Background
Shown here is a 205-nucleotide sequence from Falsibacillus albus, a member of the family "T-box leader". Rfam's curators write: Uncharged tRNA acts as the effector for transcription antitermination of genes in the T-box leader family. Rfam classes the family as a cis-regulatory leader.
RNA sequence: GUUGAAACGUUGAAGAGGAUCAGUAGGAUGAGGGGUCUUUUCCAGAGAGGAAACCGAUUGGUGAGAGGUUUCCAACAGACUGCAUCUGAACCUGCCUCGGAGUUCGGUAUCGAAACAAGAUACAUGCGGAGCCUGCUUCGUUAUAAAAAAGAGUGUACAGCAUUGCUGUAAACAAGGGUGGUACCACCAAGCCUCGGUCCCUUUU
Numbered sequence: 001g002u003u004g005a006a007a008c009g010u011u012g013a014a015g016a017g018g019a020u021c022a023g024u025a026g027g028a029u030g031a032g033g034g035g036u037c038u039u040u041u042c043c044a045g046a047g048a049g050g051a052a053a054c055c056g057a058u059u060g061g062u063g064a065g066a067g068g069u070u071u072c073c074a075a076c077a078g079a080c081u082g083c084a085u086c087u088g089a090a091c092c093u094g095c096c097u098c099g100g101a102g103u104u105c106g107g108u109a110u111c112g113a114a115a116c117a118a119g120a121u122a123c124a125u126g127c128g129g130a131g132c133c134u135g136c137u138u139c140g141u142u143a144u145a146a147a148a149a150a151g152a153g154u155g156u157a158c159a160g161c162a163u164u165g166c167u168g169u170a171a172a173c174a175a176g177g178g179u180g181g182u183a184c185c186a187c188c189a190a191g192c193c194u195c196g197g198u199c200c201c202u203u204u205u
Stems, first nucleotide, its partner, number of pairs: 007103002015098004026087005039075002049073006107123005127140003156170006175202004186198003190194001